[Rfam]
The family of this 50-nucleotide sequence from Rhodobacter sp. 24-YEA-8 is "SAM/SAH riboswitch aptamer". Taxonomically the source falls in Rhodobacter (Bacteria, Pseudomonadati, Pseudomonadota, Alphaproteobacteria). For this family Rfam cites "The structure of the SAM/SAH-binding riboswitch" (Weickhmann et al., Nucleic Acids Res, 2019). The match comes from Rfam's covariance-model search (54 bits).
RNA sequence: ACACCGUCACAACGGCUUCCUGGCGUGACGCGGUCCUUUCCAACGGAGCA
Number, nucleotide and partner (000 for none) at each position: 001a000002c000003a000004c033005c032006g029007u028008c027009a026010c025011a000012a000013c022014g021015g049016c048017u047018u000019c046020c045021u014022g013023g000024c000025g010026u009027g008028a007029c006030g000031c000032g005033g004034u000035c000036c000037u000038u000039u000040c000041c000042a000043a000044c000045g020046g019047a017048g016049c015050a000